A member of the RNA family "tRNA" from Paenibacillus nasutitermitis, 71 nucleotides long.
[Rfam]
RNA sequence: GGCGCCAUAGCCAAGUGGUAAGGCAGAGCUCUGCAAAAGCUCUACCCCCAGUUCGAAUCUGGGUGGCGCCU
Dot-bracket structure: (((((((..(((.........))).(((((.......)))))....(((((.......)))))))))))).
The base pairs follow the family's consensus structure, which is taken from published work.